The record is a 118-nucleotide RNA sequence from Protaetiibacter larvae, which matches "SAM (S-adenosyl methionine) riboswitch aptamer" in Rfam.
A reference for the family is Weinberg et al. (2008), "The aptamer core of SAM-IV riboswitches mimics the ligand-binding site of SAM-I riboswitches", RNA.
From the family's description: SAM-IV is a mRNA element that regulates gene expression via direct sensing of S-adenosylmethionine (SAM or AdoMet).
Rfam links the family to the GO terms S-adenosylmethionine metabolic process and regulation of gene expression.
[Rfam]
RNA sequence: GUUCACGAGUCGCGACUGUCGGUACCUGGCCGGUCGCGCGGCAACCCGAGUCCAUCGACUCCCGGGUGCCCCAGGGGAAGAACGGGCGCCCGCCGACCGGCCGGCGCAAGGUCGAUGG
Number, nucleotide and partner (000 for none) at each position: 001g083002u082003u081004c080005a000006c000007g000008a000009g039010u000011c038012g037013c036014g035015a034016c033017u000018g000019u000020c000021g031022g030023u000024a000025c000026c000027u000028g000029g000030c022031c021032g000033g016034u015035c014036g013037c012038g011039c009040g070041g069042c068043a000044a000045c066046c065047c064048g000049a000050g000051u000052c000053c000054a000055u000056c000057g000058a000059c000060u000061c000062c000063c000064g047065g046066g045067u000068g042069c041070c040071c000072c000073a000074g000075g000076g000077g000078a000079a000080g004081a003082a002083c001084g000085g000086g107087c106088g105089c104090c103091c000092g101093c100094c099095g000096a000097c000098c000099g094100g093101c092102c000103g090104g089105c088106g087107c086108a000109a000110g000111g000112u000113c000114g000115a000116u000117g000118g000